Notes:
Shown here is a 57-nucleotide RNA, a member of the family "L20-Deltaproteobacteria ribosomal protein leader".
RNA sequence: GACCCAGAACCGUGAGGAAAACGGCCCCUUGCGGAUCGGGCAAUACACCUAAAGGAG
Numbered sequence: 001g002a003c004c005c006a007g008a009a010c011c012g013u014g015a016g017g018a019a020a021a022c023g024g025c026c027c028c029u030u031g032c033g034g035a036u037c038g039g040g041c042a043a044u045a046c047a048c049c050u051a052a053a054g055g056a057g
Base pairs, nucleotide, nucleotide: 003040004039005038007037008036010034011033012032013031014030015029016028017027

Rfam's curators put it in the seed alignment.
A reference for the family is Eckert and Weinberg (2020), "Discovery of 20 novel ribosomal leader candidates in bacteria and archaea", BMC Microbiol.
The family's consensus secondary structure is taken from published work.